[Rfam]
RNA: DUF805b RNA
RNA sequence: AACGGGGAAGCCGAAAACCGUGAAGAGUAGGCA
Numbered sequence: 001a002a003c004g005g006g007g008a009a010g011c012c013g014a015a016a017a018c019c020g021u022g023a024a025g026a027g028u029a030g031g032c033a
Base pairs, nucleotide, nucleotide: 002021003020004019005018010032011031012030